[Rfam]
RNA: Group II catalytic intron D1-D4-3
Organism: Chitinophaga tropicalis
RNA sequence: UCCUUCGUGAGGAGGAAUCUGAAGGAAGCCUAAGGUAAAUCUCCGGCCUGACGAACAGAAAGCAGAUGAGGCAAUCAACAGAGGGUGAGUUUGCCAUACAAAACAAAGCCCCAAACUAUCCGAACUAGUUGGUUGUAUAUCUGCCAGGUAUAUGGAGAGAAAGUUUGCGUU
Number, nucleotide and partner (000 for none) at each position: 001u016002c015003c014004u013005u012006c011007g000008u000009g000010a000011g006012g005013a004014g003015g002016a001017a000018u000019c000020u000021g000022a000023a000024g000025g000026a000027a000028g171029c000030c169031u000032a000033a000034g000035g164036u163037a000038a000039a000040u158041c157042u156043c155044c154045g153046g149047c148048c147049u146050g145051a000052c000053g000054a000055a000056c000057a000058g000059a000060a000061a000062g144063c143064a142065g141066a140067u000068g000069a000070g000071g136072c135073a134074a000075u132076c131077a130078a129079c128080a000081g126082a000083g111084g110085g109086u108087g000088a000089g104090u103091u102092u101093g000094c000095c000096a000097u000098a000099c000100a000101a092102a091103a090104c089105a000106a000107a000108g086109c085110c084111c083112c000113a000114a000115a000116c000117u000118a000119u000120c000121c000122g000123a000124a000125c000126u081127a000128g079129u078130u077131g076132g075133u000134u073135g072136u071137a000138u000139a000140u066141c065142u064143g063144c062145c050146a049147g048148g047149u046150a000151u000152a000153u045154g044155g043156a042157g041158a040159g000160a000161a000162a000163g036164u035165u000166u000167g000168c000169g030170u000171u028